[Rfam]
RNA: Small nucleolar RNA snoR53Y
RNA sequence: GUUCCCGAUGAUGUUUUUCUCCUUUUACCAUGCUAAUUCUGAUCAAUGAUUAAAAUUUUCGGAUUAUUGUACUGAGGGAACU
Numbered sequence: 001g002u003u004c005c006c007g008a009u010g011a012u013g014u015u016u017u018u019c020u021c022c023u024u025u026u027a028c029c030a031u032g033c034u035a036a037u038u039c040u041g042a043u044c045a046a047u048g049a050u051u052a053a054a055a056u057u058u059u060c061g062g063a064u065u066a067u068u069g070u071a072c073u074g075a076g077g078g079a080a081c082u
Stems, first nucleotide, its partner, number of pairs: 001081005